[Rfam]
RNA sequence: GUGCCCUUUUAAGGCGGACACAGGAGGGUAAAGAAAGUCUCCAUAAAACCCAGAGAAGAGAUUUUAGAACUCUUCUCUGGAUCCUAUCUGGAGUCACAACU
Numbered sequence: 001g002u003g004c005c006c007u008u009u010u011a012a013g014g015c016g017g018a019c020a021c022a023g024g025a026g027g028g029u030a031a032a033g034a035a036a037g038u039c040u041c042c043a044u045a046a047a048a049c050c051c052a053g054a055g056a057a058g059a060g061a062u063u064u065u066a067g068a069a070c071u072c073u074u075c076u077c078u079g080g081a082u083c084c085u086a087u088c089u090g091g092a093g094u095c096a097c098a099a100c101u
Stems, first nucleotide, its partner, number of pairs: 002030009014019001037095001039093005050080007058072003062069002
The family of this 101-nucleotide RNA sequence from Moschus moschiferus is "Small nucleolar RNA SNORA26". The organism belongs to Moschus, within Eukaryota. Rfam describes the family as follows. The snoRNA HBI-6 belong to the H/ACA family of snoRNAs, guiding the pseudouridylation of position U4522 if the 28S rRNA. HBI-6 is the human orthologue of mouse MBI-6 snoRNA. On this family, see Huttenhofer et al., EMBO J 2001: "RNomics: an experimental approach that identifies 201 candidates for novel, small, non-messenger RNAs in mouse". The match comes from Rfam's covariance-model search (106 bits). The family has 76 seed sequences and 1,943 matches in Rfam 15.1. Rfam links the family to the GO terms nucleolus and RNA processing. Pairs were carried over by alignment from the consensus structure, which was predicted with RNAalifold.